Annotation:
A member of the RNA family "Y RNA" from Rhinopithecus bieti, 112 nucleotides long. It scores 50 bits against the family's covariance model.
RNA sequence: GGCUGGUCUGAGGGUAAUGAGUUAUUUCAAUUAAUUGUUCACAGUCAGUUACAGAUCAAACUCCUUGUUCUACCCUUUCCCUGCUUCUCACUACUGCACAUGACUAGUAAAA
Numbered sequence: 001g002g003c004u005g006g007u008c009u010g011a012g013g014g015u016a017a018u019g020a021g022u023u024a025u026u027u028c029a030a031u032u033a034a035u036u037g038u039u040c041a042c043a044g045u046c047a048g049u050u051a052c053a054g055a056u057c058a059a060a061c062u063c064c065u066u067g068u069u070c071u072a073c074c075c076u077u078u079c080c081c082u083g084c085u086u087c088u089c090a091c092u093a094c095u096g097c098a099c100a101u102g103a104c105u106a107g108u109a110a111a112a
Stems, first nucleotide, its partner, number of pairs: 002108007010101001014097002016092001018090004044074001047071002

Notes:
The base pairs follow the family's consensus structure, which is taken from published work. Y RNAs are components of the Ro ribonucleoprotein particle (Ro RNP), in association with Ro60 and La proteins. The Y RNAs and Ro60 and La proteins are well conserved, but the function of the Ro RNP is not known. In humans the RNA component can be one of four small RNAs -- hY1, hY3, hY4 and hY5. These small RNAs are predicted to fold into a conserved secondary structure containing three stem structures.